[Rfam]
RNA sequence: UGCAGAUGAUGCCAAUCUCACGAUGGUCUGCUGAGCCCACCAUGGGCCUGAUGACGUUGCCGUAUGGCUUUACUGAUGCAGGUGA
Numbered sequence: 001u002g003c004a005g006a007u008g009a010u011g012c013c014a015a016u017c018u019c020a021c022g023a024u025g026g027u028c029u030g031c032u033g034a035g036c037c038c039a040c041c042a043u044g045g046g047c048c049u050g051a052u053g054a055c056g057u058u059g060c061c062g063u064a065u066g067g068c069u070u071u072a073c074u075g076a077u078g079c080a081g082g083u084g085a
Base pairs, nucleotide, nucleotide: 001080002079003078004077
Notes: Small nucleolar RNA SNORD35: an 85-nucleotide RNA sequence from Sapayoa aenigma. The literature on the family includes a 1996 paper in J Mol Biol by Nicoloso et al., "Intron-encoded, antisense small nucleolar RNAs: the characterization of nine novel species points to their direct role as guides for the 2'-O-ribose methylation of rRNAs". U35 is a C/D box snoRNA located in intron 6 of ribosomal protein L13A and intron 3 of ribosomal protein S11 in humans and at homologous positions in mouse and chicken ribosomal protein genes. U35 guides the methylation of 2'-O-ribose sites in 28S rRNA. The match comes from Rfam's covariance-model search (60 bits). The source organism's lineage runs through Eukaryota, Vertebrata, Gnathostomata, Euteleostomi and Sapayoa. Its Rfam clan is "SNORD35 clan".